A member of the RNA family "Small nucleolar RNA SNORA25" from Pipistrellus kuhlii, 123 nucleotides long. Taxonomically the source falls in Pipistrellus (Eukaryota, Bilateria, Eutheria, Yangochiroptera). The family has 30 seed sequences and 1,129 matches in Rfam 15.1.
RNA sequence: AGGUCAUUUCAAAAAGAGCUUAUGGGACCAAAAUCAGGAGCUCUUAACACUGUGACCUAAGAUAGAAGUUCUCUAUAGUAACAGACACUCAAUAAUGCUUUGUUUUCAUGAGGAAAUAUAAGG
Dot-bracket structure: .((((((......((((((((.(..((......)).)))))))))......))))))............(.(((..(...(.((.((.(....).)))).).......)..))).).......
The family's RNA type in Rfam is H/ACA-box small nucleolar RNA. ACA25 is a member of the H/ACA class of snoRNA that guide the sites of modification of uridines to pseudouridines. Rfam links the family to the GO terms RNA processing and nucleolus. The match comes from Rfam's covariance-model search (100 bits).